[Rfam]
RNA sequence: UAGGUAGAGGUUCUAGCUACCCUCUAUAAAAAACUAAGAAAAC
Numbered sequence: 001u002a003g004g005u006a007g008a009g010g011u012u013c014u015a016g017c018u019a020c021c022c023u024c025u026a027u028a029a030a031a032a033a034c035u036a037a038g039a040a041a042a043c
Base pairs, nucleotide, nucleotide: 006025007024008023009022010021014036015035
About this RNA
The family of this 43-nucleotide sequence from Bacilli bacterium VT-13-104 is "PreQ1 (pre queuosine) riboswitch aptamer". About the family: This family is a bacterial riboswitch that binds to the metabolite preQ1, an intermediate in the biosynthesis of the modified nucleoside queuosine from GTP. One example of this riboswitch is located in the leader of the Bacillus subtilis ykvJKLM (queCDEF) operon which encodes four genes necessary for queuosine production. PreQ1 binding to the riboswitch aptamer is thought to induce premature transcription termination within the leader to down-regulate expression of these genes. Lineage of the source: Bacteria > Bacillati > Bacillota > Bacilli.